RNA: PyrR binding site
Organism: Alkalihalobacillus trypoxylicola
RNA sequence: AUAUCCUUUAACUGUAGUCCCGAGAGACUAAGAAGGAAACGAUGAAAAGCUGAUUGGAAAUCAAUCUGUCAAUCAUUCAUACUGCCCUCUUGUCUUUCGAUUAGACAAGAGGUUUUUUAUU
Numbered sequence: 001a002u003a004u005c006c007u008u009u010a011a012c013u014g015u016a017g018u019c020c021c022g023a024g025a026g027a028c029u030a031a032g033a034a035g036g037a038a039a040c041g042a043u044g045a046a047a048a049g050c051u052g053a054u055u056g057g058a059a060a061u062c063a064a065u066c067u068g069u070c071a072a073u074c075a076u077u078c079a080u081a082c083u084g085c086c087c088u089c090u091u092g093u094c095u096u097u098c099g100a101u102u103a104g105a106c107a108a109g110a111g112g113u114u115u116u117u118u119a120u121u
Base pairs, nucleotide, nucleotide: 004037005036006035007034008033009032015030016029017028018027019026043075044074045073049069050068052066053065054064055063056062084114086112087111088110089109090108091107092106093105094104095103